RNA sequence: UGCUGGUCAUCACAUCGACAUAUUUGGAUUGCUGUUCGCAAAUAAUGCGGGUAAUACGCAAUCGAUCCUCAUGGGUCAGCAGAUUCAAAUAAUUAUGCGCCAGCUCGUUACUGAGAAUAUUUGUGCCAUCGUUAAUGCGUAGAAUACAGAUACCCACCGGCGCGGACGCCACGAUUUUACGGUUGAACUGUUCAUUUUCCUCUAGCUGGAAGGCAUUCACUUCCGCGGGCAACAACAUUUUCCGUUCAAAGAUCCAUGCCAGCACAAAUAACAAUAUGGCCGACAGCGUAUUGAGCAGCGCCAUAUUAAUGAUCAGCGCACUAAUAGAGGACAGCAAUACCUUCACAGGAAGCGAAUAAAUAAUACUGAAUGAGGUCGGAGGCAGGCUCUUUUUCAGAAUGAUUUCAUCGUAGCCGUUCACAUAGCCGAAAUAGUUUUGGUCUACCGGGUUUGUGCUGGCGGAAGGGACAUAAUGGCCUUUGCCUUCGG
Dot-bracket structure: .(((((((((.(.((......((.....((((((...((..((.(.(..(((........)))..)..).))..))))))))))....))..).))).)))))).((....((((..((((.(((...((...........(.((....)).)...(.(.(.(.(((..((....(((.(((.((((..((...(((.(........)))).)).))))...))).)))...((..(((....((............))...................(......................).............(..(.((......((...........)).......)).)..)....)))..))..))..))).).).).)...........(((((.((.......)).))))).((.(((.......))).)).(((....(((....)))...))).))..)))))).)..))))....)).

The record is a 489-nucleotide RNA sequence from Brenneria rubrifaciens, which matches "Soft rot Enterobacteriaceae Rev 24 asRNA" in Rfam. A reference for the family is Kwenda et al. (2016), "Discovery and profiling of small RNAs responsive to stress conditions in the plant pathogen Pectobacterium atrosepticum", BMC Genomics. The family's consensus secondary structure was predicted with RNAfold. It is annotated as an antisense RNA. From bacteria cultured under starvation conditions. Antisense to rcsC. A search with the family's covariance model found it, with a score of 384 bits.